[Rfam]
RNA: Plastid-rpl16 group II-D1 intron
RNA sequence: GAGACUAGAGGCAGUAAAGACUAAGACAAUUGACUCAAGAACAA
Numbered sequence: 001g002a003g004a005c006u007a008g009a010g011g012c013a014g015u016a017a018a019g020a021c022u023a024a025g026a027c028a029a030u031u032g033a034c035u036c037a038a039g040a041a042c043a044a
Stems, first nucleotide, its partner, number of pairs: 005039002008036003012032004